[Rfam]
Rfam assigns this 89-nucleotide RNA to the family "Small nucleolar RNA R38". By type it is a C/D-box small nucleolar RNA. The base pairs follow the family's consensus structure, which was predicted with PFOLD.
RNA sequence: GUGUCGAAAUGAUGAAAAGAAUCCGCAAAAACAGUUAUCCCUGACUGAAUAAUUAUUACUGUGUUGAGAAAGCAUAUAUCUGAUAACAC
Numbered sequence: 001g002u003g004u005c006g007a008a009a010u011g012a013u014g015a016a017a018a019g020a021a022u023c024c025g026c027a028a029a030a031a032c033a034g035u036u037a038u039c040c041c042u043g044a045c046u047g048a049a050u051a052a053u054u055a056u057u058a059c060u061g062u063g064u065u066g067a068g069a070a071a072g073c074a075u076a077u078a079u080c081u082g083a084u085a086a087c088a089c
Base pairs, nucleotide, nucleotide: 001089002088003087004086006084